[Rfam]
RNA sequence: GCGCCGGCUUUUGCUCAGAAGUUGCUUCGAUUUUUACUCAAAUCCUUCUUUUUGAGUCAAGUUAACUGUGGGCACUGCCUGGCAUUUUA
Numbered sequence: 001g002c003g004c005c006g007g008c009u010u011u012u013g014c015u016c017a018g019a020a021g022u023u024g025c026u027u028c029g030a031u032u033u034u035u036a037c038u039c040a041a042a043u044c045c046u047u048c049u050u051u052u053u054g055a056g057u058c059a060a061g062u063u064a065a066c067u068g069u070g071g072g073c074a075c076u077g078c079c080u081g082g083c084a085u086u087u088u089a
Base pairs, nucleotide, nucleotide: 003083004082005081006080007079013073014072015071016070018069020067021066026056027055028054029053030052

Rfam assigns this 89-nucleotide RNA from Chiloscyllium punctatum to the family "Vault RNA". The base pairs follow the family's consensus structure, which is taken from published work. Rfam's curators write: This family of RNAs are found as part of the enigmatic vault ribonucleoprotein complex. The complex consists of a major vault protein (MVP), two minor vault proteins (VPARP and TEP1), and several small untranslated RNA molecules. It has been suggested that the vault complex is involved in drug resistance. It scores 37 bits against the family's covariance model. The family's RNA type in Rfam is non-coding RNA gene.